[Rfam]
RNA sequence: UAAUGUAGCUGCCUUUAUAUUUACUGGUCCGUAGAAUCCCUCCCAGUGACAGGGCCUAUUCAUAGCGAGUGUGAACGGUCAAUCCGGCCAACUAAAGCUUUCAUAAUGGUCAUAAGGCGGCUGACCAACGGUCUCCACUGUGAAGCACAAAUAGCGGGAUGUCGUCUGUUGGGCCGAGAAUGCGGGCCAAGCAGCGGGUUGAAGCGAUUUACGCAAAUCCGGCUACCGCAAUCGGGAAAAGAUGCUUGUGCCGUUUUCGUCAGCCACUCGCAGAGCAGAGCAAAUUAAGCUAACAGCCGAGCAGCAAACGCUGUUCUCCGUACGGCAGAACUCCAGCCCGUAUGAUCGGCCUAACGUGACCGCCCUAUGGCAAGGACGGGAUUCUGCCUAUCAGGCAUGAACUAAGCGGUCGCGUAGCGGCCACCUCCCCAUUUAUUGCAAUUGCUUCGCAAUUGUAAAAAAGGUUAACUAUCCACAUUUGAUACGACUAGUACUUUUUGCCCAUCCAUUUUUGACUCGUGAAUUUUUUAACAUGUGAAUUUUGACAAUCUUCUCCGUGGAAGCACCUCCUCUUCAUCGCUUCCAUUCAUUAACGAGAACCACCUGCCCCUGCGCUAUUGCGCAGGGGCUUUUUUGUAGAGC
Numbered sequence: 001u002a003a004u005g006u007a008g009c010u011g012c013c014u015u016u017a018u019a020u021u022u023a024c025u026g027g028u029c030c031g032u033a034g035a036a037u038c039c040c041u042c043c044c045a046g047u048g049a050c051a052g053g054g055c056c057u058a059u060u061c062a063u064a065g066c067g068a069g070u071g072u073g074a075a076c077g078g079u080c081a082a083u084c085c086g087g088c089c090a091a092c093u094a095a096a097g098c099u100u101u102c103a104u105a106a107u108g109g110u111c112a113u114a115a116g117g118c119g120g121c122u123g124a125c126c127a128a129c130g131g132u133c134u135c136c137a138c139u140g141u142g143a144a145g146c147a148c149a150a151a152u153a154g155c156g157g158g159a160u161g162u163c164g165u166c167u168g169u170u171g172g173g174c175c176g177a178g179a180a181u182g183c184g185g186g187c188c189a190a191g192c193a194g195c196g197g198g199u200u201g202a203a204g205c206g207a208u209u210u211a212c213g214c215a216a217a218u219c220c221g222g223c224u225a226c227c228g229c230a231a232u233c234g235g236g237a238a239a240a241g242a243u244g245c246u247u248g249u250g251c252c253g254u255u256u257u258c259g260u261c262a263g264c265c266a267c268u269c270g271c272a273g274a275g276c277a278g279a280g281c282a283a284a285u286u287a288a289g290c291u292a293a294c295a296g297c298c299g300a301g302c303a304g305c306a307a308a309c310g311c312u313g314u315u316c317u318c319c320g321u322a323c324g325g326c327a328g329a330a331c332u333c334c335a336g337c338c339c340g341u342a343u344g345a346u347c348g349g350c351c352u353a354a355c356g357u358g359a360c361c362g363c364c365c366u367a368u369g370g371c372a373a374g375g376a377c378g379g380g381a382u383u384c385u386g387c388c389u390a391u392c393a394g395g396c397a398u399g400a401a402c403u404a405a406g407c408g409g410u411c412g413c414g415u416a417g418c419g420g421c422c423a424c425c426u427c428c429c430c431a432u433u434u435a436u437u438g439c440a441a442u443u444g445c446u447u448c449g450c451a452a453u454u455g456u457a458a459a460a461a462a463g464g465u466u467a468a469c470u471a472u473c474c475a476c477a478u479u480u481g482a483u484a485c486g487a488c489u490a491g492u493a494c495u496u497u498u499u500g501c502c503c504a505u506c507c508a509u510u511u512u513u514g515a516c517u518c519g520u521g522a523a524u525u526u527u528u529u530a531a532c533a534u535g536u537g538a539a540u541u542u543u544g545a546c547a548a549u550c551u552u553c554u555c556c557g558u559g560g561a562a563g564c565a566c567c568u569c570c571u572c573u574u575c576a577u578c579g580c581u582u583c584c585a586u587u588c589a590u591u592a593a594c595g596a597g598a599a600c601c602a603c604c605u606g607c608c609c610c611u612g613c614g615c616u617a618u619u620g621c622g623c624a625g626g627g628g629c630u631u632u633u634u635u636g637u638a639g640a641g642c
Stems, first nucleotide, its partner, number of pairs: 013641007022493008031485003034384007041376003046371002049368001051366004059075006076362006082160004087155002097146004102142004107137003115134004120129001167356011180343008188248006195221006204214003226235003249327006267280003289297003299316007385397005406424001408422006429464002432462003436458010516597005522591003534547003557586008606629010
The family of this 642-nucleotide RNA from Brucella melitensis is "Brucella sRNA 0653". Lineage of the source: Bacteria > Pseudomonadati > Hyphomicrobiales > Brucella > Brucella melitensis bv. 1. The sequence is in the family's curated seed alignment. It is annotated as a small RNA.